[Rfam]
RNA sequence: UUCGUCUCACGUGACUGGCGAAUCCGACUGGUUUUCCUGCUGUUUAUAGGUAAAUUACGUCGUAAGGUGGGCUUACCCACCGUGAAGCGUGAGAUUUCAUUGCCGUGCGCCUGGGUAGCCCGA
Numbered sequence: 001u002u003c004g005u006c007u008c009a010c011g012u013g014a015c016u017g018g019c020g021a022a023u024c025c026g027a028c029u030g031g032u033u034u035u036c037c038u039g040c041u042g043u044u045u046a047u048a049g050g051u052a053a054a055u056u057a058c059g060u061c062g063u064a065a066g067g068u069g070g071g072c073u074u075a076c077c078c079a080c081c082g083u084g085a086a087g088c089g090u091g092a093g094a095u096u097u098c099a100u101u102g103c104c105g106u107g108c109g110c111c112u113g114g115g116u117a118g119c120c121c122g123a
Stems, first nucleotide, its partner, number of pairs: 004095009015084001017111004067080004100118005
ZMP/ZTP riboswitch aptamer (pfl RNA motif): a 123-nucleotide RNA from Janthinobacterium sp. Marseille. Its family is annotated with regulation of purine nucleotide biosynthetic process and one-carbon metabolic process in the Gene Ontology. It is one of the family's seed sequences.